[Rfam]
RNA: 6S / SsrS RNA
RNA sequence: UAAGAACUUAAGUAUAUGUAUGGCUCAUGUUUAUUCGGGCCUAACACUUUUGAAUAGGGAAUGAGAAUUAUCUGCUAGUAUAGCGUGCCUAACCACUAUUGUUAGGAUUUUAGAAAACAGAACUAUCAUACCCACCUGAUCAUAUCAGGACCAAUUUUUGUGAGUACCUACGAUACUUCGGUUUACCU
Numbered sequence: 001u002a003a004g005a006a007c008u009u010a011a012g013u014a015u016a017u018g019u020a021u022g023g024c025u026c027a028u029g030u031u032u033a034u035u036c037g038g039g040c041c042u043a044a045c046a047c048u049u050u051u052g053a054a055u056a057g058g059g060a061a062u063g064a065g066a067a068u069u070a071u072c073u074g075c076u077a078g079u080a081u082a083g084c085g086u087g088c089c090u091a092a093c094c095a096c097u098a099u100u101g102u103u104a105g106g107a108u109u110u111u112a113g114a115a116a117a118c119a120g121a122a123c124u125a126u127c128a129u130a131c132c133c134a135c136c137u138g139a140u141c142a143u144a145u146c147a148g149g150a151c152c153a154a155u156u157u158u159u160g161u162g163a164g165u166a167c168c169u170a171c172g173a174u175a176c177u178u179c180g181g182u183u184u185a186c187c188u
Stems, first nucleotide, its partner, number of pairs: 004184005010178006017172003033156001035154001037152002040149003057133003061129004066124001071121004076116001082110002088106005